[Rfam]
The family of this 80-nucleotide sequence from Ancylostoma duodenale is "SmY spliceosomal RNA". Rfam 15.1 lists 408 matches to the family in 67 species. For this family Rfam cites "A novel family of C. elegans snRNPs contains proteins associated with trans-splicing" (MacMorris et al., RNA, 2007). It scores 55 bits against the family's covariance model. The source organism's lineage runs through Eukaryota, Eumetazoa, Chromadorea, Ancylostomatidae and Ancylostoma. The base pairs follow the family's consensus structure, which is taken from published work.
RNA sequence: GAAAUCUGAAUAAUCUACCCGGGGCCUUCAGUAAGACCCUUUGUACUAAUUUUUGGAAACCUCUGCUCAGGUAGAGGUUA
Numbered sequence: 001g002a003a004a005u006c007u008g009a010a011u012a013a014u015c016u017a018c019c020c021g022g023g024g025c026c027u028u029c030a031g032u033a034a035g036a037c038c039c040u041u042u043g044u045a046c047u048a049a050u051u052u053u054u055g056g057a058a059a060c061c062u063c064u065g066c067u068c069a070g071g072u073a074g075a076g077g078u079u080a
Stems, first nucleotide, its partner, number of pairs: 022039003026035003058079009